Background: A member of the RNA family "Eukaryotic large subunit ribosomal RNA" from Fasciola hepatica, 289 nucleotides of a longer RNA. Lineage of the source: Eukaryota > Eumetazoa > Bilateria > Echinostomata > Fasciola.

RNA sequence: AGGCCGGCAAAUUGGAUCCGUAACUUCGGAAAAGGGAUUGGCUCUGGGGGCCGAGUCAAACAGGCUAAAGUAAGUUGUGUCGGUCAUGUUGGAGGCUGGUUUUUCUGUUGCCUUGUCAGCUUCGCUGGGUAGGUUGGCGGAGUUACUGGACUCAGACCGGACCGGUCGUGGGCGAAUUCAGCUAACGGAGUUGCUUGGCAGACGGUGUGUACGGGUAACUGUGUGUGCAACGCCGUCUUGCUCUCUUCGUCUGGCUUUCAACUGCCAACUCAGAAAUUACACGGAUCAG
Numbered sequence: 001a002g003g004c005c006g007g008c009a010a011a012u013u014g015g016a017u018c019c020g021u022a023a024c025u026u027c028g029g030a031a032a033a034g035g036g037a038u039u040g041g042c043u044c045u046g047g048g049g050g051c052c053g054a055g056u057c058a059a060a061c062a063g064g065c066u067a068a069a070g071u072a073a074g075u076u077g078u079g080u081c082g083g084u085c086a087u088g089u090u091g092g093a094g095g096c097u098g099g100u101u102u103u104u105c106u107g108u109u110g111c112c113u114u115g116u117c118a119g120c121u122u123c124g125c126u127g128g129g130u131a132g133g134u135u136g137g138c139g140g141a142g143u144u145a146c147u148g149g150a151c152u153c154a155g156a157c158c159g160g161a162c163c164g165g166u167c168g169u170g171g172g173c174g175a176a177u178u179c180a181g182c183u184a185a186c187g188g189a190g191u192u193g194c195u196u197g198g199c200a201g202a203c204g205g206u207g208u209g210u211a212c213g214g215g216u217a218a219c220u221g222u223g224u225g226u227g228c229a230a231c232g233c234c235g236u237c238u239u240g241c242u243c244u245c246u247u248c249g250u251c252u253g254g255c256u257u258u259c260a261a262c263u264g265c266c267a268a269c270u271c272a273g274a275a276a277u278u279a280c281a282c283g284g285a286u287c288a289g
Base pairs, nucleotide, nucleotide: 015039016038017037018036019035024029040277043274044273045272046271047270048269049266050265051264053262055255056254057253058252060250061249063247064182065181066180068178069177071175077169078168079167080165081164082163083162084161085160088157089156090155092153093152094151096149097148098147099146100145103142104141105140106139107138108137109136110135